The record is a 104-nucleotide sequence from Mycolicibacterium agri, which matches "mraW RNA" in Rfam. The source organism's lineage runs through Bacteria, Actinomycetes, Mycobacteriales, Mycobacteriaceae and Mycobacterium (subgen. Mycolicibacterium). It scores 50 bits against the family's covariance model.
[Rfam]
RNA sequence: UCCACACCCUGCACCGGGGUCUCUGUCCGAGCGCGCGGACCUGGCGUUGGGGAAGUACGCCAGGGCCGGCUCGGACAGAGGCCGCGAUGCACGGUCAGCCACCG
Numbered sequence: 001u002c003c004a005c006a007c008c009c010u011g012c013a014c015c016g017g018g019g020u021c022u023c024u025g026u027c028c029g030a031g032c033g034c035g036c037g038g039a040c041c042u043g044g045c046g047u048u049g050g051g052g053a054a055g056u057a058c059g060c061c062a063g064g065g066c067c068g069g070c071u072c073g074g075a076c077a078g079a080g081g082c083c084g085c086g087a088u089g090c091a092c093g094g095u096c097a098g099c100c101a102c103c104g
Stems, first nucleotide, its partner, number of pairs: 010091004015086002018083002021080012036068003040064008
Dot-bracket structure: .........((((.((.((.((((((((((((...(((.((((((((.........)))))))).))))))))))))))).)).)).)))).............